[Rfam]
Record summary:
dauA ncRNA motif: an 87-nucleotide RNA from Streptomyces sp. 3213.3. The family's consensus secondary structure is taken from published work. Rfam's curators write: dauA ncRNA motif was reported as a strong cis regulatory motif candidate, with potential to be a cis regulatory riboswitch type, it have been identified in genomes of the genus Streptomyces.
RNA sequence: ACGCCCCUGCUGGCAGCGCGCCAAGGGGCCGGGAAUCCCGGCGCCCCGCGUCCGCCGCCGGACAGUCUUCUGAUCCGAGGCGUCAUG
Numbered sequence: 001a002c003g004c005c006c007c008u009g010c011u012g013g014c015a016g017c018g019c020g021c022c023a024a025g026g027g028g029c030c031g032g033g034a035a036u037c038c039c040g041g042c043g044c045c046c047c048g049c050g051u052c053c054g055c056c057g058c059c060g061g062a063c064a065g066u067c068u069u070c071u072g073a074u075c076c077g078a079g080g081c082g083u084c085a086u087g
Base pairs, nucleotide, nucleotide: 001083002082003081004080005079010061011060012059013058016055017054018053020051021050025047026046028042029041030040031039032038063077065075

It scores 67 bits against the family's covariance model. The literature on the family includes a 2024 paper in Nucleic Acids Res by Narunsky et al., "The discovery of novel noncoding RNAs in 50 bacterial genomes".